[Rfam]
Annotation:
mir-263 microRNA precursor family: a 79-nucleotide RNA from Oppiella nova. Lineage of the source: Eukaryota > Bilateria > Sarcoptiformes > Oribatida > Oppiella.
RNA sequence: CCUCCUUAUCCCUUGGCACUGGAAGAAUUCACCGAUACGUUCAAAGUCGUGGGUUCUCGGGUGCCAAAGAAAAAGGAAA
Numbered sequence: 001c002c003u004c005c006u007u008a009u010c011c012c013u014u015g016g017c018a019c020u021g022g023a024a025g026a027a028u029u030c031a032c033c034g035a036u037a038c039g040u041u042c043a044a045a046g047u048c049g050u051g052g053g054u055u056c057u058c059g060g061g062u063g064c065c066a067a068a069g070a071a072a073a074a075g076g077a078a079a
Stems, first nucleotide, its partner, number of pairs: 003077005009071001013067006020060001022058001025055002029052004034047001
On this family, see Li et al., BMC Genomics 2009: "Direct sequencing and expression analysis of a large number of miRNAs in Aedes aegypti and a multi-species survey of novel mosquito miRNAs". The family has 52 seed sequences and 368 matches in Rfam 15.1.